Rfam assigns this 140-nucleotide sequence from Thamnophis sirtalis to the family "Small nucleolar RNA SNORA64/SNORA10 family". Rfam 15.1 lists 703 matches to the family in 311 species. Pairs were carried over by alignment from the consensus structure, which is taken from published work. Rfam links the family to the GO terms nucleolus and RNA processing.
[Rfam]
RNA sequence: ACUCUCUCAGCUCUGCUCAGUUGCGCCUGCCUCCAGUGGUGUAGCUGUCGUUUUCGAGAGGGAAAGCAAAUGAGUUGGAAUUUGCACGGCAGUGAGUCCGGCUGCAGUGGUCUCUCUGUUUCUUAUCAAACUCAACAGGU
Numbered sequence: 001a002c003u004c005u006c007u008c009a010g011c012u013c014u015g016c017u018c019a020g021u022u023g024c025g026c027c028u029g030c031c032u033c034c035a036g037u038g039g040u041g042u043a044g045c046u047g048u049c050g051u052u053u054u055c056g057a058g059a060g061g062g063a064a065a066g067c068a069a070a071u072g073a074g075u076u077g078g079a080a081u082u083u084g085c086a087c088g089g090c091a092g093u094g095a096g097u098c099c100g101g102c103u104g105c106a107g108u109g110g111u112c113u114c115u116c117u118g119u120u121u122c123u124u125a126u127c128a129a130a131c132u133c134a135a136c137a138g139g140u
Base pairs, nucleotide, nucleotide: 002066003065005063006062007061008060011058012057013056015054019046020045021044022043023042024041025040026039075129076128077127078126080123091117092116095113096112098110099109
This family belongs to the H/ACA class of small nucleolar RNAs (snoRNAs) which act as guides in the the modification of uridines to pseudouridines. This family includes the human snoRNAs U64 and ACA10 and mouse MBI-29.
It is annotated as an H/ACA-box small nucleolar RNA.
The source organism's lineage runs through Eukaryota, Chordata, Bifurcata, Colubroidea and Thamnophis.